The record is a 106-nucleotide sequence, which matches "Methylobacterium-1 RNA" in Rfam.
Pairs were carried over by alignment from the consensus structure, which is taken from published work.
By type it is a small RNA.

[Rfam]
RNA sequence: AAAGUUGGAUUAAUUGGUGACUAAAGAUUCCCAACAAGACGGGGGAGAAAUUACCCCCACACGAUAUUCAAGAUCACUGCAUCGGUAGAAUAUCGUGACCGAAGGU
Numbered sequence: 001a002a003a004g005u006u007g008g009a010u011u012a013a014u015u016g017g018u019g020a021c022u023a024a025a026g027a028u029u030c031c032c033a034a035c036a037a038g039a040c041g042g043g044g045g046a047g048a049a050a051u052u053a054c055c056c057c058c059a060c061a062c063g064a065u066a067u068u069c070a071a072g073a074u075c076a077c078u079g080c081a082u083c084g085g086u087a088g089a090a091u092a093u094c095g096u097g098a099c100c101g102a103a104g105g106u
Base pairs, nucleotide, nucleotide: 004035005034006033007032008031013028014027015026041058042057043056044055045054060097061096062095063094064093065092066091067090068089069088073086074085075084